[Rfam]
The record is a 122-nucleotide RNA sequence from Pirellula sp. SH-Sr6A, which matches "Group II catalytic intron D1-D4-3" in Rfam.
RNA sequence: AAAUCUGCGAGGCUACGAACAGAAACAUCCUACAAGGCCGGAUCAGCGGGCGAGCAAGCACAACAUUGCGAAGCCCAAUGCCUAUCGGUUGAUCAGGUAAAGGAUGAGCUUGUGCAGAGGAA
Numbered sequence: 001a002a003a004u005c006u007g008c009g010a011g012g013c014u015a016c017g018a019a020c021a022g023a024a025a026c027a028u029c030c031u032a033c034a035a036g037g038c039c040g041g042a043u044c045a046g047c048g049g050g051c052g053a054g055c056a057a058g059c060a061c062a063a064c065a066u067u068g069c070g071a072a073g074c075c076c077a078a079u080g081c082c083u084a085u086c087g088g089u090u091g092a093u094c095a096g097g098u099a100a101a102g103g104a105u106g107a108g109c110u111u112g113u114g115c116a117g118a119g120g121a122a
Stems, first nucleotide, its partner, number of pairs: 004118006010111005026106006037098003041094007048076004054069004
Annotation: The base pairs follow the family's consensus structure. The match comes from Rfam's covariance-model search (96 bits).